A member of the RNA family "Lysine riboswitch aptamer" from Calderihabitans maritimus, 187 nucleotides long. For this family Rfam cites "Riboswitches Control Fundamental Biochemical Pathways in Bacillus subtilis and Other Bacteria" (Mandal et al., Cell, 2003). Rfam links the family to the GO term lysine biosynthetic process. The source organism's lineage runs through Bacteria, Bacillota, Clostridia, Neomoorellales and Calderihabitans.
Nucleotides: 187
Stems, first nucleotide, its partner, number of pairs: 006182006016081006023075003033066008085114012115141002118138008143172010
Number, partner (000 for none) and nucleotide at each position: 001000a002000g003000g004000u005000g006182a007181g008180g009179u010178a011177g012000a013000g014000g015000a016081g017080c018079g019078g020077a021076g022000u023075g024074u025073c026000a027000a028000g029000a030000g031000u032000a033066c034065u035064g036063c037062c038061g039060g040059g041000g042000a043000g044000a045000c046000c047000g048000g049000g050000a051000g052000u053000u054000u055000g056000u057000g058000a059040u060039c061038c062037g063036g064035u065034a066033g067000g068000a069000a070000a071000g072000g073025g074024g075023c076021c077020u078019u079018c080017g081016c082000c083000g084000a085114a086113g087112u088111u089110u090109c091108a092107a093106a094105g095104c096103u097000g098000c099000g100000c101000c102000g103096g104095g105094c106093u107092u108091u109090g110089a111088a112087a113086c114085u115141g116140g117000g118138c119137c120136u121135g122134c123133g124132c125131u126000g127000a128000a129000c130000a131125a132124g133123u134122g135121c136120a137119g138118g139000a140116c141115u142000g143172u144171c145170a146169c147168c148167a149166g150165a151164g152163a153000a154000g155000u156000a157000c158000c159000u160000g161000g162000g163152u164151c165150u166149c167148u168147g169146g170145u171144g172143g173000a174000g175000c176000a177011c178010u179009a180008u181007c182006u183000c184000a185000c186000a187000c